About this RNA: The record is a 382-nucleotide part of an RNA from Tremella mesenterica, which matches "Eukaryotic large subunit ribosomal RNA" in Rfam.

RNA sequence: GGAGGGACGUCGUAACAGUAAUUGAGGGUAGUACGAGAGGAACUGCUCAUUCAGAUAAUUGGUAUUUGCGCCUGUCCGACCGGGCAAUGGCGCGAAGCUACCAUCUGCUAGAUUAUGGCUGAACGCCUCUAAGUCAGAAUCUGUACUGGAAACGACGUUGUUGGUCCCGCACGUGUCAGUUGCGUUAGAAUAGGCUUCGGCUGUGCACCAUACAUGGGUAGGGCCCCCUCGUGGAAACGCGUCGGGGGUCUCCCUGAGCGAAAUGGGAUAUGGGCGGGGGUGAAUCCUUUGCAGACGACUUGAAUGGAACGGGGUGCUGUAAGCGGCAGAGUAGCCUUGUCGCUACGAUCCGCUGAGGCUAAGCCUUUGUUCCGCGAUUUGU
Numbered sequence: 001g002g003a004g005g006g007a008c009g010u011c012g013u014a015a016c017a018g019u020a021a022u023u024g025a026g027g028g029u030a031g032u033a034c035g036a037g038a039g040g041a042a043c044u045g046c047u048c049a050u051u052c053a054g055a056u057a058a059u060u061g062g063u064a065u066u067u068g069c070g071c072c073u074g075u076c077c078g079a080c081c082g083g084g085c086a087a088u089g090g091c092g093c094g095a096a097g098c099u100a101c102c103a104u105c106u107g108c109u110a111g112a113u114u115a116u117g118g119c120u121g122a123a124c125g126c127c128u129c130u131a132a133g134u135c136a137g138a139a140u141c142u143g144u145a146c147u148g149g150a151a152a153c154g155a156c157g158u159u160g161u162u163g164g165u166c167c168c169g170c171a172c173g174u175g176u177c178a179g180u181u182g183c184g185u186u187a188g189a190a191u192a193g194g195c196u197u198c199g200g201c202u203g204u205g206c207a208c209c210a211u212a213c214a215u216g217g218g219u220a221g222g223g224c225c226c227c228c229u230c231g232u233g234g235a236a237a238c239g240c241g242u243c244g245g246g247g248g249u250c251u252c253c254c255u256g257a258g259c260g261a262a263a264u265g266g267g268a269u270a271u272g273g274g275c276g277g278g279g280g281u282g283a284a285u286c287c288u289u290u291g292c293a294g295a296c297g298a299c300u301u302g303a304a305u306g307g308a309a310c311g312g313g314g315u316g317c318u319g320u321a322a323g324c325g326g327c328a329g330a331g332u333a334g335c336c337u338u339g340u341c342g343c344u345a346c347g348a349u350c351c352g353c354u355g356a357g358g359c360u361a362a363g364c365c366u367u368u369g370u371u372c373c374g375c376g377a378u379u380u381g382u
Base pairs, nucleotide, nucleotide: 006159007158008157009156010155011154012153013152016148017147018146019145021051023049024048025047026046028044052107053106054105055104056103060100061099062098067094068093069092070091071090073086074085075084076083077082109143110142111141116136117135118134119133120132166278167277168276169275170274172272282380283379284378285377286376288302291299307372308371309370310369311368312366313365314364316359317358323353324352325351326350328349331346332345333344334343335342

Source information: Pairs were carried over by alignment from the consensus structure, which is taken from published work. The organism belongs to Tremella mesenterica, within Eukaryota. Clan: LSU clan.